The family of this 102-nucleotide sequence from Caenorhabditis brenneri is "mir-36 microRNA precursor family". The family is grouped with related families in Rfam's "mir-36 clan". On this family, see Ohler et al., RNA 2004: "Patterns of flanking sequence conservation and a characteristic upstream motif for microRNA gene identification". Lineage of the source: Eukaryota > Metazoa > Eumetazoa > Bilateria > Caenorhabditis. A search with the family's covariance model found it, with a score of 74 bits. Gene Ontology terms of the family: miRNA-mediated post-transcriptional gene silencing and RISC complex. The family's consensus secondary structure was predicted with WAR.
[Rfam]
RNA sequence: CAUUCAAGGGUGGAGCGGGCCUGUGCUGAUUUUUGCCACGGUGAUAUUUCUAAAUUAUGACUAUCACCGGGUGGAAAUUUGGCACAGGCCCGGUCCACCCUG
Number, nucleotide and partner (000 for none) at each position: 001c000002a000003u000004u000005c000006a000007a000008g000009g000010g000011u000012g000013g000014a000015g000016c092017g091018g090019g089020c088021c087022u086023g000024u084025g083026c082027u081028g080029a078030u077031u076032u075033u074034u073035g072036c071037c070038a000039c069040g000041g067042u066043g065044a064045u063046a062047u000048u000049u000050c000051u000052a000053a000054a000055u000056u000057a000058u000059g000060a000061c000062u046063a045064u044065c043066a042067c041068c000069g039070g037071g036072u035073g034074g033075a032076a031077a030078u029079u000080u028081g027082g026083c025084a024085c000086a022087g021088g020089c019090c018091c017092g016093g000094u000095c000096c000097a000098c000099c000100c000101u000102g000